[Rfam]
RNA: mir-216 microRNA precursor family
Organism: Oncorhynchus kisutch
RNA sequence: AUUUGGCCUAAUCUCAGCUGGCAACUGUGAGCAGUUCAGUGUUUCCUCUCACAGUGGCUACUGGGGUUCUGCUAAAC
Numbered sequence: 001a002u003u004u005g006g007c008c009u010a011a012u013c014u015c016a017g018c019u020g021g022c023a024a025c026u027g028u029g030a031g032c033a034g035u036u037c038a039g040u041g042u043u044u045c046c047u048c049u050c051a052c053a054g055u056g057g058c059u060a061c062u063g064g065g066g067u068u069c070u071g072c073u074a075a076a077c
Stems, first nucleotide, its partner, number of pairs: 003075005010068008020059003023055001026053006